A member of the RNA family "glmS glucosamine-6-phosphate activated ribozyme aptamer" from Clostridium grantii, 156 nucleotides long. The family's consensus secondary structure is taken from published work. Rfam links the family to the GO terms regulation of gene expression and catalytic activity. About the family: This entry contains a glucosamine-6-phosphate activated ribozyme that is found in the mRNA for GlmS. GlmS is an enzyme that uses fructose-6-phosphate and glutamine to generate glucosamine-6-phosphate. The source organism's lineage runs through Bacteria, Bacillati, Clostridia, Clostridium and Clostridium grantii. A reference for the family is Hampel and Tinsley (2006), "Evidence for preorganization of the glmS ribozyme ligand binding pocket", Biochemistry.
RNA sequence: AUAUUAUAGUUAGCGCCAGAAGUAGUGGGUAAAGUGCUACUUGACGAGGAUGGGGAGUAUCGAAAUUUCGGCGGAUGCCCCACGGUAUAACACUAUCGAUAAACAUUGGCAAAGCAAAGAAGUGAUUCUUUGUACAAAUUCAAUGGAGUGUGAAUC
Numbered sequence: 001a002u003a004u005u006a007u008a009g010u011u012a013g014c015g016c017c018a019g020a021a022g023u024a025g026u027g028g029g030u031a032a033a034g035u036g037c038u039a040c041u042u043g044a045c046g047a048g049g050a051u052g053g054g055g056a057g058u059a060u061c062g063a064a065a066u067u068u069c070g071g072c073g074g075a076u077g078c079c080c081c082a083c084g085g086u087a088u089a090a091c092a093c094u095a096u097c098g099a100u101a102a103a104c105a106u107u108g109g110c111a112a113a114g115c116a117a118a119g120a121a122g123u124g125a126u127u128c129u130u131u132g133u134a135c136a137a138a139u140u141c142a143a144u145g146g147a148g149u150g151u152g153a154a155u156c
Stems, first nucleotide, its partner, number of pairs: 020042008051082005060071004083098005104145005115132007